[Rfam]
RNA sequence: AGGUCUGUGGUCUGUGAUGCAUUUCUGUGUCUGAUUUAAGCAUGAGGUGUUACACAGCCUUCGUCACUACCACUGAGACCACAUUAUU
Numbered sequence: 001a002g003g004u005c006u007g008u009g010g011u012c013u014g015u016g017a018u019g020c021a022u023u024u025c026u027g028u029g030u031c032u033g034a035u036u037u038a039a040g041c042a043u044g045a046g047g048u049g050u051u052a053c054a055c056a057g058c059c060u061u062c063g064u065c066a067c068u069a070c071c072a073c074u075g076a077g078a079c080c081a082c083a084u085u086a087u088u
Stems, first nucleotide, its partner, number of pairs: 001088002006083007